[Rfam]
RNA sequence: CAUGUCAAGGAGCGUUGCAAUUGUUAUAUCAACAACAAUUAGGCUUGACAUCUCUAAUUUAUUUAACGACGCUCGCAAACU
Numbered sequence: 001c002a003u004g005u006c007a008a009g010g011a012g013c014g015u016u017g018c019a020a021u022u023g024u025u026a027u028a029u030c031a032a033c034a035a036c037a038a039u040u041a042g043g044c045u046u047g048a049c050a051u052c053u054c055u056a057a058u059u060u061a062u063u064u065a066a067c068g069a070c071g072c073u074c075g076c077a078a079a080c081u
Stems, first nucleotide, its partner, number of pairs: 002051007021038005
Record summary
Rfam assigns this 81-nucleotide RNA to the family "SAH (S-adenosyl-L-homocysteine) riboswitch aptamer". The family's consensus secondary structure is taken from published work. The match comes from Rfam's covariance-model search (53 bits).